[Rfam]
RNA sequence: GUUAAAAGAUUAAUCGUUAGUCUUUAAAAGCCAGCAAUUGGCUAGUCAGCGUAACAGCUGGCGACACUCCCAAAUUGCGGGAACGUCCUCAUUGCCUCUACUACCAAUCCAUGUAUGGCAACGUACGUGGUGGCCAAGCUAAUCACUUGGGUAUGGUAAAAACGUAGAGGAUUGGACAAUCCGCAGCCAAGCUUCUCCUCGAUGAGAAGAAGGUUCAACGACUAAAUGGGUGUGGGUUGACCGGUGGUCAGCUUAAGAUAUAGUCUGGCCCCACCGAAAGGUGGUC
Numbered sequence: 001g002u003u004a005a006a007a008g009a010u011u012a013a014u015c016g017u018u019a020g021u022c023u024u025u026a027a028a029a030g031c032c033a034g035c036a037a038u039u040g041g042c043u044a045g046u047c048a049g050c051g052u053a054a055c056a057g058c059u060g061g062c063g064a065c066a067c068u069c070c071c072a073a074a075u076u077g078c079g080g081g082a083a084c085g086u087c088c089u090c091a092u093u094g095c096c097u098c099u100a101c102u103a104c105c106a107a108u109c110c111a112u113g114u115a116u117g118g119c120a121a122c123g124u125a126c127g128u129g130g131u132g133g134c135c136a137a138g139c140u141a142a143u144c145a146c147u148u149g150g151g152u153a154u155g156g157u158a159a160a161a162a163c164g165u166a167g168a169g170g171a172u173u174g175g176a177c178a179a180u181c182c183g184c185a186g187c188c189a190a191g192c193u194u195c196u197c198c199u200c201g202a203u204g205a206g207a208a209g210a211a212g213g214u215u216c217a218a219c220g221a222c223u224a225a226a227u228g229g230g231u232g233u234g235g236g237u238u239g240a241c242c243g244g245u246g247g248u249c250a251g252c253u254u255a256a257g258a259u260a261u262a263g264u265c266u267g268g269c270c271c272c273a274c275c276g277a278a279a280g281g282u283g284g285u286c
Stems, first nucleotide, its partner, number of pairs: 005025009029043005065234003069230001071228002076185006086176003186214002193207002218266001220265005236252007271284005
Group I catalytic intron: a 286-nucleotide RNA from Raphidocelis subcapitata.
Rfam 15.1 lists 5,602 matches to the family in 1,395 species.
The match comes from Rfam's covariance-model search (101 bits).
About the family: Group I catalytic introns are large self-splicing ribozymes. They catalyse their own excision from mRNA, tRNA and rRNA precursors in a wide range of organisms. The core secondary structure consists of 9 paired regions (P1-P9).
On this family, see Cech, Annu Rev Biochem 1990: "Self-splicing of group I introns".